A member of the RNA family "tRNA" from Gottfriedia endophytica, 71 nucleotides long. Pairs were carried over by alignment from the consensus structure, which is taken from published work. It scores 70 bits against the family's covariance model.

RNA sequence: GCGGGUGUAGUUUAAUGGUAAAAUAAGAGCCUUCCAAGCUCUGGUCGUGGGUUCGAUUCCCAUCACCCGCU
Numbered sequence: 001g002c003g004g005g006u007g008u009a010g011u012u013u014a015a016u017g018g019u020a021a022a023a024u025a026a027g028a029g030c031c032u033u034c035c036a037a038g039c040u041c042u043g044g045u046c047g048u049g050g051g052u053u054c055g056a057u058u059c060c061c062a063u064c065a066c067c068c069g070c071u
Stems, first nucleotide, its partner, number of pairs: 001070007010024004026042005047063005